RNA sequence: UUUUCAACCUACCCCUAACCAGGAUGGUCGUUGAAAC
Numbered sequence: 001u002u003u004u005c006a007a008c009c010u011a012c013c014c015c016u017a018a019c020c021a022g023g024a025u026g027g028u029c030g031u032u033g034a035a036a037c
Base pairs, nucleotide, nucleotide: 005033006032007031008030009027010026013023014022
Annotation:
Shown here is a 37-nucleotide RNA from Nostoc sp. PCC 7107, a member of the family "CRISPR RNA direct repeat element". Pairs were carried over by alignment from the consensus structure, which was predicted with WAR. A search with the family's covariance model found it, with a score of 47 bits. Lineage of the source: Bacteria > Cyanobacteriota > Nostocales > Nostocaceae > Nostoc.